[Rfam]
RNA sequence: AGCACCGCACCACCAGCAGCACCAAGGGAACCGGGGAACCAACACCUUGGGGUGAAUCGGGUCGAACCUGACCCGUAGGAGACCUUCCUGCUCCGAACCCGUCAGCUAACCCGGUAGGCGAGAGGGAAGGAAAGG
Numbered sequence: 001a002g003c004a005c006c007g008c009a010c011c012a013c014c015a016g017c018a019g020c021a022c023c024a025a026g027g028g029a030a031c032c033g034g035g036g037a038a039c040c041a042a043c044a045c046c047u048u049g050g051g052g053u054g055a056a057u058c059g060g061g062u063c064g065a066a067c068c069u070g071a072c073c074c075g076u077a078g079g080a081g082a083c084c085u086u087c088c089u090g091c092u093c094c095g096a097a098c099c100c101g102u103c104a105g106c107u108a109a110c111c112c113g114g115u116a117g118g119c120g121a122g123a124g125g126g127a128a129g130g131a132a133a134g135g
Base pairs, nucleotide, nucleotide: 003120005118006117011028030115031114032113033112034111035110040049041048050100051099052098058075059074060073061072078094079093080092081091
This 135-nucleotide RNA sequence from Streptomyces albiflaviniger belongs to the Rfam family "c-di-AMP riboswitch aptamer (ydaO/yuaA leader)". The source organism's lineage runs through Bacteria, Actinomycetes, Kitasatosporales, Streptomycetaceae and Streptomyces. It scores 87 bits against the family's covariance model.